Rfam assigns this 124-nucleotide sequence from Luteimonas gilva to the family "SAH (S-adenosyl-L-homocysteine) riboswitch aptamer".
The source organism's lineage runs through Bacteria, Pseudomonadota, Gammaproteobacteria, Lysobacterales and Luteimonas.
A search with the family's covariance model found it, with a score of 49 bits.
RNA sequence: CCCGCCGAGGGGCGCUGCGACCUGUACGCGGAUCCUUCCGCAAGAGCCUGCACACCCUUGUGCAGGGAUUCAAAAGUACGGCCAGGCUCGGCGUGGGUUUCUGCAACAACGGCGCCCGUUAAUG
Numbered sequence: 001c002c003c004g005c006c007g008a009g010g011g012g013c014g015c016u017g018c019g020a021c022c023u024g025u026a027c028g029c030g031g032a033u034c035c036u037u038c039c040g041c042a043a044g045a046g047c048c049u050g051c052a053c054a055c056c057c058u059u060g061u062g063c064a065g066g067g068a069u070u071c072a073a074a075a076g077u078a079c080g081g082c083c084a085g086g087c088u089c090g091g092c093g094u095g096g097g098u099u100u101c102u103g104c105a106a107c108a109a110c111g112g113c114g115c116c117c118g119u120u121a122a123u124g
Base pairs, nucleotide, nucleotide: 003093004092005091006090007089008088021081022080024079025078026077